[Rfam]
RNA sequence: GGAACCUGCACGCGUUGCGGGGCAACGAUGGCCAAGGA
Numbered sequence: 001g002g003a004a005c006c007u008g009c010a011c012g013c014g015u016u017g018c019g020g021g022g023c024a025a026c027g028a029u030g031g032c033c034a035a036g037g038a
Base pairs, nucleotide, nucleotide: 005031006030013027014026015025016024017023018022
This 38-nucleotide RNA from Syntrophus gentianae belongs to the Rfam family "Selenocysteine insertion sequence 4".
Its family is annotated with selenocysteine incorporation in the Gene Ontology.
The match comes from Rfam's covariance-model search (50 bits).
Rfam classes the family as a cis-regulatory element.
The family's consensus secondary structure was predicted with PFOLD.